[Rfam]
RNA: Plastid-psbN 5UTR RNA
Organism: Tetracentron sinense
RNA sequence: UGCCACACCCAUCAAAGGAGUAGUACCCCAUUCAGGAGCUACUUUACAAUAUUUCGAAUUC
Numbered sequence: 001u002g003c004c005a006c007a008c009c010c011a012u013c014a015a016a017g018g019a020g021u022a023g024u025a026c027c028c029c030a031u032u033c034a035g036g037a038g039c040u041a042c043u044u045u046a047c048a049a050u051a052u053u054u055c056g057a058a059u060u061c
Stems, first nucleotide, its partner, number of pairs: 017045008026036002